[Rfam]
RNA: ZMP/ZTP riboswitch aptamer (pfl RNA motif)
RNA sequence: AACGCUGCAUGCGACUGGCGAAAUCAGUGGAAGCGACCACGAGGGAGCAUGCGGACCGGAAUACACCGUUCGCCUGGGGAAAGUAU
Numbered sequence: 001a002a003c004g005c006u007g008c009a010u011g012c013g014a015c016u017g018g019c020g021a022a023a024u025c026a027g028u029g030g031a032a033g034c035g036a037c038c039a040c041g042a043g044g045g046a047g048c049a050u051g052c053g054g055a056c057c058g059g060a061a062u063a064c065a066c067c068g069u070u071c072g073c074c075u076g077g078g079g080a081a082a083g084u085a086u
Stems, first nucleotide, its partner, number of pairs: 005054008015044002017074005027040004066078002
Dot-bracket structure: ....((((((((..(([[[[[.....((((......))))..))..))))))))...........((..]]]]]..))........